[Rfam]
RNA sequence: GAAUAUUUGCUCUUUUAGUAUUUCUCUGGUAGGUUUCCUCAAGGAGAAAGCCACC
Numbered sequence: 001g002a003a004u005a006u007u008u009g010c011u012c013u014u015u016u017a018g019u020a021u022u023u024c025u026c027u028g029g030u031a032g033g034u035u036u037c038c039u040c041a042a043g044g045a046g047a048a049a050g051c052c053a054c055c
Base pairs, nucleotide, nucleotide: 032052033051034050035049036048038046039045040044
Description:
U7 small nuclear RNA: a 55-nucleotide RNA from Coregonus sp. 'balchen'. From the family's description: Animal histone pre-mRNAs are spliced by a different mechanism than nuclear pre-mRNAs and self-splicing introns. Lineage of the source: Eukaryota > Actinopterygii > Protacanthopterygii > Salmoniformes > Coregonus.